Shown here is a 79-nucleotide sequence from Sulfobacillus harzensis, a member of the family "Fluoride riboswitch aptamer (crcB RNA motif)".
Taxonomically the source falls in Sulfobacillus (Bacteria, Bacillota, Clostridia, Eubacteriales).
RNA sequence: CUGUUCGACGGUAAUGGAGGUCUACCGCUCCCAGUCAAUGGGGAAACCGCUCACAGCAGCUGAUGACUCCUGCACUUUC
Numbered sequence: 001c002u003g004u005u006c007g008a009c010g011g012u013a014a015u016g017g018a019g020g021u022c023u024a025c026c027g028c029u030c031c032c033a034g035u036c037a038a039u040g041g042g043g044a045a046a047c048c049g050c051u052c053a054c055a056g057c058a059g060c061u062g063a064u065g066a067c068u069c070c071u072g073c074a075c076u077u078u079c
Stems, first nucleotide, its partner, number of pairs: 010026004016070004021065001049060003